The record is a 367-nucleotide RNA sequence from Sporobacter termitidis, which matches "Bacterial RNase P class A" in Rfam.
RNA sequence: CGAGUAAGCCGGGCAGCCGCGGGGGAAAGCCGAAAGGCUUCCCGUGAGGAAAGUCCGGGCUCCGCAGGGCAAGGAUAACGGGUAACGCCCGCCGAAGGCGACUUCAGGACAAGUGCAACAGAGAUAUACCACCGUUUUCGGUGUUACGAAAACGGUAAGGGUGGAAAAGUGAGGUAAGAGCUCACUCAGCGGCUGGAGACAGUCCGCUGCUGUAAACUCUAUCCGGAGCAACACCGUGGAGAGAGCUGUACUUUAAUGUACAGGCCGGCCCGGCCGCUCUCAGGAGGUGGCUUGAGCCCAUUGGCAACGAUGGGCCUAGACAGAUGGCUGUUCAAGACAGAAUCCGGCUUACAGACUUACUCGCAAA
Numbered sequence: 001c002g003a004g005u006a007a008g009c010c011g012g013g014c015a016g017c018c019g020c021g022g023g024g025g026a027a028a029g030c031c032g033a034a035a036g037g038c039u040u041c042c043c044g045u046g047a048g049g050a051a052a053g054u055c056c057g058g059g060c061u062c063c064g065c066a067g068g069g070c071a072a073g074g075a076u077a078a079c080g081g082g083u084a085a086c087g088c089c090c091g092c093c094g095a096a097g098g099c100g101a102c103u104u105c106a107g108g109a110c111a112a113g114u115g116c117a118a119c120a121g122a123g124a125u126a127u128a129c130c131a132c133c134g135u136u137u138u139c140g141g142u143g144u145u146a147c148g149a150a151a152a153c154g155g156u157a158a159g160g161g162u163g164g165a166a167a168a169g170u171g172a173g174g175u176a177a178g179a180g181c182u183c184a185c186u187c188a189g190c191g192g193c194u195g196g197a198g199a200c201a202g203u204c205c206g207c208u209g210c211u212g213u214a215a216a217c218u219c220u221a222u223c224c225g226g227a228g229c230a231a232c233a234c235c236g237u238g239g240a241g242a243g244a245g246c247u248g249u250a251c252u253u254u255a256a257u258g259u260a261c262a263g264g265c266c267g268g269c270c271c272g273g274c275c276g277c278u279c280u281c282a283g284g285a286g287g288u289g290g291c292u293u294g295a296g297c298c299c300a301u302u303g304g305c306a307a308c309g310a311u312g313g314g315c316c317u318a319g320a321c322a323g324a325u326g327g328c329u330g331u332u333c334a335a336g337a338c339a340g341a342a343u344c345c346g347g348c349u350u351a352c353a354g355a356c357u358u359a360c361u362c363g364c365a366a367a
Stems, first nucleotide, its partner, number of pairs: 001363008010354001011352001012332007020046002023043005051350003055347005060228004068271002073224005079091004093107001094105004108219002113217002115213003129160002131156009168186006188208005193202003232289004241281006263275004296315008
Lineage of the source: Bacteria > Clostridia > Eubacteriales > Sporobacter > Sporobacter termitidis.
By type it is a ribozyme.
About the family: Ribonuclease P (RNase P) is a ubiquitous endoribonuclease, found in archaea, bacteria and eukarya as well as chloroplasts and mitochondria.